[Rfam]
The family of this 94-nucleotide sequence from Alkaliphilus peptidifermentans is "TPP riboswitch aptamer (THI element)".
RNA sequence: AAUGAUCGCUAGGGGCGCCUUGUGCUGAGAGGAAUCAUCCAACCCUUUGAACCUGUAGGUUAACACCUGCGAAGGAAAGCGAAUUCUUGACUUC
Numbered sequence: 001a002a003u004g005a006u007c008g009c010u011a012g013g014g015g016c017g018c019c020u021u022g023u024g025c026u027g028a029g030a031g032g033a034a035u036c037a038u039c040c041a042a043c044c045c046u047u048u049g050a051a052c053c054u055g056u057a058g059g060u061u062a063a064c065a066c067c068u069g070c071g072a073a074g075g076a077a078a079g080c081g082a083a084u085u086c087u088u089g090a091c092u093u094c
Stems, first nucleotide, its partner, number of pairs: 006082005011046004017025002032039002052075003056069004
The family's consensus secondary structure is taken from published work. A search with the family's covariance model found it, with a score of 55 bits.